The record is an 80-nucleotide RNA sequence from Lipotes vexillifer, which matches "mir-598 microRNA precursor family" in Rfam.
[Rfam]
RNA sequence: GCUGAUGCUGGCGGUGAUGCCGAUGGUGCGAGCUAGAAAUGGGGUGCUACGUCAUCGCUGUCAUCGUCGUCAUCAUCAUC
Numbered sequence: 001g002c003u004g005a006u007g008c009u010g011g012c013g014g015u016g017a018u019g020c021c022g023a024u025g026g027u028g029c030g031a032g033c034u035a036g037a038a039a040u041g042g043g044g045u046g047c048u049a050c051g052u053c054a055u056c057g058c059u060g061u062c063a064u065c066g067u068c069g070u071c072a073u074c075a076u077c078a079u080c
Stems, first nucleotide, its partner, number of pairs: 001077001003075005009069009021060002024057005029051002031048003
Dot-bracket structure: (.(((((.(((((((((...((.((((((((((............))).)).))))).))))))))))).))))).)...
NCBI's taxonomy places the organism under Eukaryota, Chordata, Dipnotetrapodomorpha, Artiodactyla, Lipotes.